[Rfam]
RNA sequence: GGCGAUAAACGCACCUGUAAUAAUCGGAUCGGACCCGGGGGCGGUACCCGGCGGCUCCACCAAUCACCCGGCAUUGCGGGCGGACGGGGCCGAAACAGGAUCGACGAACGACUAAAGAGGCCAGCUUUCGCUCGGUGAGGUACCACCGUUAUCGGUCCGAAAAGUACAGUUGCCAAUGACAACCGUGCUCCGGUCGCUCUGGCUGCGUAA
Numbered sequence: 001g002g003c004g005a006u007a008a009a010c011g012c013a014c015c016u017g018u019a020a021u022a023a024u025c026g027g028a029u030c031g032g033a034c035c036c037g038g039g040g041g042c043g044g045u046a047c048c049c050g051g052c053g054g055c056u057c058c059a060c061c062a063a064u065c066a067c068c069c070g071g072c073a074u075u076g077c078g079g080g081c082g083g084a085c086g087g088g089g090c091c092g093a094a095a096c097a098g099g100a101u102c103g104a105c106g107a108a109c110g111a112c113u114a115a116a117g118a119g120g121c122c123a124g125c126u127u128u129c130g131c132u133c134g135g136u137g138a139g140g141u142a143c144c145a146c147c148g149u150u151a152u153c154g155g156u157c158c159g160a161a162a163a164g165u166a167c168a169g170u171u172g173c174c175a176a177u178g179a180c181a182a183c184c185g186u187g188c189u190c191c192g193g194u195c196g197c198u199c200u201g202g203c204u205g206c207g208u209a210a
Base pairs, nucleotide, nucleotide: 001132002131003130004129005128014120015119016118025110026109029107030106031105035051036050037049038048039047052092053091054090055089056088057087058086133148134147135146136145